[Rfam]
RNA sequence: AGUGCAUAAAAGGAGACAGACCAAUGGGACUGACGCGAUCUUUGAAUGUCCUCAUGAUCUGUGUGGCAUUUGUAUUUAUUGCAGCGUUGAUAGCGGGAAUGAUUCCUUGACGACGAAACCGGUCAUUAGCGGUUUCUCCGAGCUUAAAAAACACAAGCCCCGGUUUAAUACCGGGGCUUU
Numbered sequence: 001a002g003u004g005c006a007u008a009a010a011a012g013g014a015g016a017c018a019g020a021c022c023a024a025u026g027g028g029a030c031u032g033a034c035g036c037g038a039u040c041u042u043u044g045a046a047u048g049u050c051c052u053c054a055u056g057a058u059c060u061g062u063g064u065g066g067c068a069u070u071u072g073u074a075u076u077u078a079u080u081g082c083a084g085c086g087u088u089g090a091u092a093g094c095g096g097g098a099a100u101g102a103u104u105c106c107u108u109g110a111c112g113a114c115g116a117a118a119c120c121g122g123u124c125a126u127u128a129g130c131g132g133u134u135u136c137u138c139c140g141a142g143c144u145u146a147a148a149a150a151a152c153a154c155a156a157g158c159c160c161c162g163g164u165u166u167a168a169u170a171c172c173g174g175g176g177c178u179u180u
Base pairs, nucleotide, nucleotide: 015050016049017048018047026042027041028040029039155179156178157177158176159175160174161173162172163171164170